permuted transfer-messenger RNA: a 214-nucleotide RNA sequence from Asticcacaulis benevestitus. For this family Rfam cites "Phylogenetic analysis of tmRNA secondary structure" (Williams and Bartel, RNA, 1996). The family's RNA type in Rfam is non-coding RNA gene. Pairs were carried over by alignment from the consensus structure, which is taken from published work. A search with the family's covariance model found it, with a score of 131 bits.

RNA sequence: GGGGAUAAACGCCCACGUAAUAAGCGAACUGGACCCGGGUGCGAUUCCCGGCGGCUCCACCAUUAUUCUCCCGGUUUCGCGGGAAGGUUAUGGGGCCGAUCAGCAUCGACAGGCGUGUAAAGGUGAAGCUUUCCCUCAGUGUGAGGCUCUGUGAUCGCCUCAUUUUUUAACUGCGAACGAUAACUUCGCUUCGGAUCAAGCCAUCGCUGCGUAA
Numbered sequence: 001g002g003g004g005a006u007a008a009a010c011g012c013c014c015a016c017g018u019a020a021u022a023a024g025c026g027a028a029c030u031g032g033a034c035c036c037g038g039g040u041g042c043g044a045u046u047c048c049c050g051g052c053g054g055c056u057c058c059a060c061c062a063u064u065a066u067u068c069u070c071c072c073g074g075u076u077u078c079g080c081g082g083g084a085a086g087g088u089u090a091u092g093g094g095g096c097c098g099a100u101c102a103g104c105a106u107c108g109a110c111a112g113g114c115g116u117g118u119a120a121a122g123g124u125g126a127a128g129c130u131u132u133c134c135c136u137c138a139g140u141g142u143g144a145g146g147c148u149c150u151g152u153g154a155u156c157g158c159c160u161c162a163u164u165u166u167u168u169a170a171c172u173g174c175g176a177a178c179g180a181u182a183a184c185u186u187c188g189c190u191u192c193g194g195a196u197c198a199a200g201c202c203a204u205c206g207c208u209g210c211g212u213a214a
Stems, first nucleotide, its partner, number of pairs: 001136005014125003025115002029112003035051005052098007137151003